SAM riboswitch aptamer (S box leader): a 131-nucleotide RNA sequence from Brevibacillus fluminis. Taxonomically the source falls in Brevibacillus (Bacteria, Bacilli, Caryophanales, Paenibacillaceae). Gene Ontology term of the family: regulation of gene expression.
RNA sequence: CUCUUAUCGUGAGCUGGCUGAGGGACUGGCCCUUUGACGCCCGGCAACCAUGUGCAUGCCUUUUCAAACAGGCUGCGCAACGGUGCUAAUUCCUGCAGAGACAUGUGUAUUUCGUCCCUGAGUGAUGAGAG
Numbered sequence: 001c002u003c004u005u006a007u008c009g010u011g012a013g014c015u016g017g018c019u020g021a022g023g024g025a026c027u028g029g030c031c032c033u034u035u036g037a038c039g040c041c042c043g044g045c046a047a048c049c050a051u052g053u054g055c056a057u058g059c060c061u062u063u064u065c066a067a068a069c070a071g072g073c074u075g076c077g078c079a080a081c082g083g084u085g086c087u088a089a090u091u092c093c094u095g096c097a098g099a100g101a102c103a104u105g106u107g108u109a110u111u112u113c114g115u116c117c118c119u120g121a122g123u124g125a126u127g128a129g130a131g
Stems, first nucleotide, its partner, number of pairs: 001131008013042001016041003022032003026095001028093002043087004048083002051079006096120003100116002